[Rfam]
Nucleotides: 262
Stems, first nucleotide, its partner, number of pairs: 001262006008056003011029004016024001018022001033053005061255002066250002070246005077240010089227002093224006101217002103214003112208008120197006126188002129186005135178005145170004153162003
Number, partner (000 for none) and nucleotide at each position: 001262c002261c003260g004259u005258g006257c007000a008056g009055c010054c011029g012028g013027g014026g015000a016024g017000a018022u019000a020000g021000c022018g023000g024016u025000g026014c027013c028012c029011u030000g031000u032000a033053c034052c035051u036050g037049c038000a039000a040000u041000c042000c043000g044000c045000u046000a047000c048000a049037g050036c051035a052034g053033g054010g055009g056008u057000g058000u059000u060000g061255c062254c063000a064000a065000a066250c067249g068000g069000a070246g071245g072244g073243g074242c075000u076000c077240u078239u079238c080237u081236u082235g083234u084233g085232a086231a087000g088000c089227u090226g091000c092000c093224c094223u095222c096221u097220a098219u099000a100000a101217g102216u103214g104213g105212c106000g107000u108000u109000g110000a111000c112208g113207u114206c115205u116204g117203g118202g119201u120197c121196u122195u123194a124193c125192g126188c127187a128000a129186c130185a131184g132183g133182a134000a135178u136177c137176u138175g139174u140000g141000a142000a143000c144000c145170g146169u147168g148167u149000c150000a151000g152000g153162g154161c155160a156000g157000g158000a159000a160155u161154g162153c163000a164000g165000c166000a167148g168147c169146a170145c171000u172000a173000a174139g175138c176137a177136g178135a179000a180000c181000c182133u183132u184131c185130u186129g187127u188126g189000u190000g191000c192125c193124g194123u195122g196121a197120g198000g199000g200000u201119g202118c203117c204116u205115g206114g207113g208112c209000u210000g211000a212105g213104u214103u215000a216102a217101c218000u219098g220097u221096a222095g223094a224093g225000g226090u227089a228000a229000c230000g231086u232085u233084u234083g235082u236081g237080a238079g239078a240077a241000a242074g243073u244072u245071u246070c247000g248000a249067u250066g251000g252000g253000c254062g255061g256000c257006g258005c259004a260003c261002g262001g